Annotation: The record is a 96-nucleotide RNA from Papaver nudicaule, which matches "mir-395 microRNA precursor family" in Rfam. Pairs were carried over by alignment from the consensus structure, which was predicted with PFOLD. NCBI's taxonomy places the organism under Eukaryota, Tracheophyta, Euphyllophyta, Papaveraceae, Papaver. From the family's description: mir-395 was identified in both Arabidopsis thaliana and Oryza sativa computationally and was later experimentally verified. mir-395 is thought to target mRNAs coding for ATP sulphurylases. The mature sequence is excised from the 3' arm of the hairpin. The family has 25 seed sequences and 2,798 matches in Rfam 15.1.
RNA sequence: GUGUCACCUAGAGUUCCUCUUUCCUCUUCAGUAGUUAUGUUCAAUGGCACAUUAAGCUAGUGCUACUGAAGGGUUUGGAGGAACUCUGGGUGUCAC
Numbered sequence: 001g002u003g004u005c006a007c008c009u010a011g012a013g014u015u016c017c018u019c020u021u022u023c024c025u026c027u028u029c030a031g032u033a034g035u036u037a038u039g040u041u042c043a044a045u046g047g048c049a050c051a052u053u054a055a056g057c058u059a060g061u062g063c064u065a066c067u068g069a070a071g072g073g074u075u076u077g078g079a080g081g082a083a084c085u086c087u088g089g090g091u092g093u094c095a096c
Base pairs, nucleotide, nucleotide: 005092006091007090008089009088011086012085013084014083015082016081017080018079019078020077024073025072026071027070028069029068030067031066032065033064034063035062

The literature on the family includes a 2004 paper in Mol Cell by Jones-Rhoades and Bartel, "Computational Identification of Plant MicroRNAs and Their Targets, Including a Stress-Induced miRNA".